[Rfam]
RNA sequence: AUCGUUCAAUCCUUCUAAAGGAUCGGAAGUAGGGGUGACCUUAAGGAACGCGGA
Numbered sequence: 001a002u003c004g005u006u007c008a009a010u011c012c013u014u015c016u017a018a019a020g021g022a023u024c025g026g027a028a029g030u031a032g033g034g035g036u037g038a039c040c041u042u043a044a045g046g047a048a049c050g051c052g053g054a
Stems, first nucleotide, its partner, number of pairs: 003050005009023005026051001032041003
Rfam assigns this 54-nucleotide sequence to the family "Glutamine riboswitch aptamer (glnA leader)". Its family is annotated with glutamine binding in the Gene Ontology. The base pairs follow the family's consensus structure, which is taken from published work. It is one of the family's seed sequences.